The record is a 73-nucleotide RNA sequence from Hymenochirus boettgeri, which matches "Small nucleolar RNA SNORD26" in Rfam.
Rfam links the family to the GO terms nucleolus and RNA processing.
The base pairs follow the family's consensus structure, which was predicted with PFOLD.
RNA sequence: CCACAAAGACGAUUCCAACGAACUCUCUCUUACUGAGAUACCAGUGGAGAUUAACUUUAAACUGCUGAGUGGC
Numbered sequence: 001c002c003a004c005a006a007a008g009a010c011g012a013u014u015c016c017a018a019c020g021a022a023c024u025c026u027c028u029c030u031u032a033c034u035g036a037g038a039u040a041c042c043a044g045u046g047g048a049g050a051u052u053a054a055c056u057u058u059a060a061a062c063u064g065c066u067g068a069g070u071g072g073c
Stems, first nucleotide, its partner, number of pairs: 001072004
It is annotated as a C/D-box small nucleolar RNA. The family has 17 seed sequences and 451 matches in Rfam 15.1.